[Rfam]
The family of this 148-nucleotide RNA from Mesorhizobium hungaricum is "speF leader". Rfam's curators write: This family is a putative regulatory RNA structure that is found upstream of the speF gene encoding ornithine decarboxylase in Agrobacterium tumefaciens and other alpha-proteobacteria. Rfam classes the family as a cis-regulatory leader. For this family Rfam cites "A survey of sRNA families in alpha-proteobacteria" (del Val et al., RNA Biol, 2012).

RNA sequence: UUCCGGUUGUCCAUAGACCGGGGUUACUGAAGAGGCACACCCUCAUUGCCGGCAGUGCGGUUGGGAUUUCCCAUCCAAGCCAAGGCAGACAAAGCGGAUCAUAGCCGGGCAAGGCUAGGUCCAUCGCCGCGAGACGGCUUUCCAUGGU
Numbered sequence: 001u002u003c004c005g006g007u008u009g010u011c012c013a014u015a016g017a018c019c020g021g022g023g024u025u026a027c028u029g030a031a032g033a034g035g036c037a038c039a040c041c042c043u044c045a046u047u048g049c050c051g052g053c054a055g056u057g058c059g060g061u062u063g064g065g066a067u068u069u070c071c072c073a074u075c076c077a078a079g080c081c082a083a084g085g086c087a088g089a090c091a092a093a094g095c096g097g098a099u100c101a102u103a104g105c106c107g108g109g110c111a112a113g114g115c116u117a118g119g120u121c122c123a124u125c126g127c128c129g130c131g132a133g134a135c136g137g138c139u140u141u142c143c144a145u146g147g148u
Base pairs, nucleotide, nucleotide: 001023002022003021004020005019006018007017008016034050035049036048037047057127058126059125080088099109100108